Rfam assigns this 134-nucleotide sequence from Dethiobacter sp. to the family "Molybdenum/Tungsten riboswitch aptamer (Moco RNA motif)". For this family Rfam cites "in molybdenum cofactor and tungsten cofactor metabolism" (Regulski et al., Mol Microbiol, 2008). A search with the family's covariance model found it, with a score of 75 bits. The source organism's lineage runs through Bacteria, Bacillati, Bacillota, Dethiobacteria and Dethiobacter.
[Rfam]
RNA sequence: CCAGUUAGCUUUCUCCGAGCCUGCUUGCCUAAAGGUCAACCUAUGGCGUGCAGGCCCUGGGUCAACAGACCUGCGGGGUGCGGGAUGGAAACGCCUGCGCCUCCUCAACGGAAAGGAGAGUGUAGCCAUUUUUU
Number, nucleotide and partner (000 for none) at each position: 001c000002c000003a000004g127005u000006u125007a000008g000009c000010u000011u120012u119013c118014u117015c116016c115017g000018a000019g055020c054021c053022u052023g051024c050025u000026u048027g047028c046029c045030u000031a000032a000033a042034g041035g040036u000037c000038a000039a000040c035041c034042u033043a000044u000045g029046g028047c027048g026049u000050g024051c023052a022053g021054g020055c019056c000057c000058u073059g072060g071061g070062u069063c000064a000065a000066c000067a000068g000069a062070c061071c060072u059073g058074c000075g000076g102077g101078g100079u099080g098081c097082g000083g096084g095085a000086u093087g092088g000089a000090a000091a000092c087093g086094c000095c084096u083097g081098c080099g079100c078101c077102u076103c111104c110105u000106c000107a000108a000109c000110g104111g103112a000113a000114a000115g016116g015117a014118g013119a012120g011121u000122g000123u000124a000125g006126c000127c004128a000129u000130u000131u000132u000133u000134u000